[Rfam]
RNA: c-di-GMP-I riboswitch aptamer
Organism: Pullulanibacillus pueri
RNA sequence: CUUCGAUAAUGGCAAACUUACUGAAAGGUAAGGACGCAAAGCUACGGGUCUAAGGCUUUAUUUUAAGCUAUGAUCGCCGGGUUACCGAA
Numbered sequence: 001c002u003u004c005g006a007u008a009a010u011g012g013c014a015a016a017c018u019u020a021c022u023g024a025a026a027g028g029u030a031a032g033g034a035c036g037c038a039a040a041g042c043u044a045c046g047g048g049u050c051u052a053a054g055g056c057u058u059u060a061u062u063u064u065a066a067g068c069u070a071u072g073a074u075c076g077c078c079g080g081g082u083u084a085c086c087g088a089a
Base pairs, nucleotide, nucleotide: 012037013036017032018031019030020029021028022027040083041082042081043080045079046078047077048074049073050072055068056067057066058065